This 105-nucleotide RNA from Prunus armeniaca belongs to the Rfam family "MIR6274 microRNA precursor family". The base pairs follow the family's consensus structure, which was predicted with RNAalifold.

[Rfam]
RNA sequence: GGAUGUCACUGUUUUGCUAUUCCCGGCCAAUAACACAAUGACACGUGGAAAAGUUAUCCUACGUGUCACUAUAUUAUUGGUCGGGGAUAGCAAAAAGUAUUAUCC
Numbered sequence: 001g002g003a004u005g006u007c008a009c010u011g012u013u014u015u016g017c018u019a020u021u022c023c024c025g026g027c028c029a030a031u032a033a034c035a036c037a038a039u040g041a042c043a044c045g046u047g048g049a050a051a052a053g054u055u056a057u058c059c060u061a062c063g064u065g066u067c068a069c070u071a072u073a074u075u076a077u078u079g080g081u082c083g084g085g086g087a088u089a090g091c092a093a094a095a096a097g098u099a100u101u102a103u104c105c
Base pairs, nucleotide, nucleotide: 002104003103004102005101012095013094014093015092016091017090018089019088020087022085023084024083025082026081027080028079029078030077031076032075033074035072037070039068040067041066042065043064044063045062046061047060048059050057